Shown here is a 382-nucleotide part of an RNA from Mycoplasma sp., a member of the family "Bacterial large subunit ribosomal RNA". The family is grouped with related families in Rfam's "LSU clan". The literature on the family includes a 2001 paper in Science by Yusupov et al., "Crystal structure of the ribosome at 5.5 A resolution".

RNA sequence: GAAUGAAGGUGAGAAUCCUUCACACCUAUUGACUAAGGUUUCCUGGGCCAGGUUCGUCCACCCAGGGUUAGUCGGGACCUAAGGCCAGGCCGAAAGGAGUAGCCGAUGGACAACAGGUUUAUAUUCCUGUACUUGGAUAUUGAGAAAUGGAGUGACAGAGAAGGUUAUGUCAGCCGGUCAUUGGUAGUACCGGCCUAAGCAUCAAGGUGGUCAUGUAGGCAAAUCCGCAUGGCGUAACAUUGAGGUGUAAAAGAUACCGAAACCCUCGGGGAGUAGGAAAGUGACAAAUAUCACGCUUUCAAGAAAAACUUCUAUCGCUAAUCAAUAUCUAACCCGUACCGAUAACGAACACACGUGGUCAAGAAGAAAAUUCUAAGGUGAG
Numbered sequence: 001g002a003a004u005g006a007a008g009g010u011g012a013g014a015a016u017c018c019u020u021c022a023c024a025c026c027u028a029u030u031g032a033c034u035a036a037g038g039u040u041u042c043c044u045g046g047g048c049c050a051g052g053u054u055c056g057u058c059c060a061c062c063c064a065g066g067g068u069u070a071g072u073c074g075g076g077a078c079c080u081a082a083g084g085c086c087a088g089g090c091c092g093a094a095a096g097g098a099g100u101a102g103c104c105g106a107u108g109g110a111c112a113a114c115a116g117g118u119u120u121a122u123a124u125u126c127c128u129g130u131a132c133u134u135g136g137a138u139a140u141u142g143a144g145a146a147a148u149g150g151a152g153u154g155a156c157a158g159a160g161a162a163g164g165u166u167a168u169g170u171c172a173g174c175c176g177g178u179c180a181u182u183g184g185u186a187g188u189a190c191c192g193g194c195c196u197a198a199g200c201a202u203c204a205a206g207g208u209g210g211u212c213a214u215g216u217a218g219g220c221a222a223a224u225c226c227g228c229a230u231g232g233c234g235u236a237a238c239a240u241u242g243a244g245g246u247g248u249a250a251a252a253g254a255u256a257c258c259g260a261a262a263c264c265c266u267c268g269g270g271g272a273g274u275a276g277g278a279a280a281g282u283g284a285c286a287a288a289u290a291u292c293a294c295g296c297u298u299u300c301a302a303g304a305a306a307a308a309c310u311u312c313u314a315u316c317g318c319u320a321a322u323c324a325a326u327a328u329c330u331a332a333c334c335c336g337u338a339c340c341g342a343u344a345a346c347g348a349a350c351a352c353a354c355g356u357g358g359u360c361a362a363g364a365a366g367a368a369a370a371u372u373c374u375a376a377g378g379u380g381a382g
Stems, first nucleotide, its partner, number of pairs: 004022006023380004031360004037340002042066006051059002073336004078109002083104003087100001090097002113130005133332011144316002149312005157299004163292003168286005173194006195253002199248004206241003210233007218226002255279001257277002260274001346355002362374004
About this RNA:
Gene Ontology terms of the family: ribosome and structural constituent of ribosome.